Background
Shown here is a 109-nucleotide RNA sequence from Corchorus olitorius, a member of the family "MIR390 microRNA precursor family". The base pairs follow the family's consensus structure, which was predicted with WAR.

RNA sequence: UAGAAGAAUCUGUUAAGCUCAGGAGGGAUAGCGCCAUGGAUGAUCUUUUUGAUAGUAAUUACUUGAUCCUCAUUAGCGCUAUCCAUCCUGAGUUUCAUCGGUUCUUCUU
Numbered sequence: 001u002a003g004a005a006g007a008a009u010c011u012g013u014u015a016a017g018c019u020c021a022g023g024a025g026g027g028a029u030a031g032c033g034c035c036a037u038g039g040a041u042g043a044u045c046u047u048u049u050u051g052a053u054a055g056u057a058a059u060u061a062c063u064u065g066a067u068c069c070u071c072a073u074u075a076g077c078g079c080u081a082u083c084c085a086u087c088c089u090g091a092g093u094u095u096c097a098u099c100g101g102u103u104c105u106u107c108u109u
Stems, first nucleotide, its partner, number of pairs: 010100001016094009026084009